A member of the RNA family "Small nucleolar RNA SNORA58" from Heliornis fulica, 135 nucleotides long.

[Rfam]
RNA sequence: CUGCAUACCAGUAGACCUUAUCUGGUUCUGCUCAUAGCCAGACGAGGGGGACGGUACCUGCUAGAAAAACCUGGGGUUGCUGUAGGCUGUGAUCAGCCUCCAUGUGGCUGAUCAAACUGCAAUACUCCAACACAA
Numbered sequence: 001c002u003g004c005a006u007a008c009c010a011g012u013a014g015a016c017c018u019u020a021u022c023u024g025g026u027u028c029u030g031c032u033c034a035u036a037g038c039c040a041g042a043c044g045a046g047g048g049g050g051a052c053g054g055u056a057c058c059u060g061c062u063a064g065a066a067a068a069a070c071c072u073g074g075g076g077u078u079g080c081u082g083u084a085g086g087c088u089g090u091g092a093u094c095a096g097c098c099u100c101c102a103u104g105u106g107g108c109u110g111a112u113c114a115a116a117c118u119g120c121a122a123u124a125c126u127c128c129a130a131c132a133c134a135a
Stems, first nucleotide, its partner, number of pairs: 003061003016047004021042004073128004078124001081121003093111005
Clan: SNORA44 clan. Pairs were carried over by alignment from the consensus structure, which was predicted with PFOLD. Rfam 15.1 lists 471 matches to the family in 320 species. ACA52 is a member of the H/ACA class of snoRNA that guide the sites of modification of uridines to pseudouridines. By type it is an H/ACA-box small nucleolar RNA.